[Rfam]
RNA sequence: CAAGCGAUGCCGAAUACGGGUCGCGUAAACCACUCGCUGACAAACAGGAGAAAUUAUCAUGGCG
Numbered sequence: 001c002a003a004g005c006g007a008u009g010c011c012g013a014a015u016a017c018g019g020g021u022c023g024c025g026u027a028a029a030c031c032a033c034u035c036g037c038u039g040a041c042a043a044a045c046a047g048g049a050g051a052a053a054u055u056a057u058c059a060u061g062g063c064g
Stems, first nucleotide, its partner, number of pairs: 002026001004024005010019003033050003037047003
A member of the RNA family "Repression of heat shock gene expression (ROSE) element" from Pseudomonas syringae group genomosp. 3, 64 nucleotides long.
The literature on the family includes a 2013 paper in PLoS One by Krajewski et al., "Short ROSE-Like RNA Thermometers Control IbpA Synthesis in Pseudomonas Species".
Pairs were carried over by alignment from the consensus structure.
The match comes from Rfam's covariance-model search (44 bits).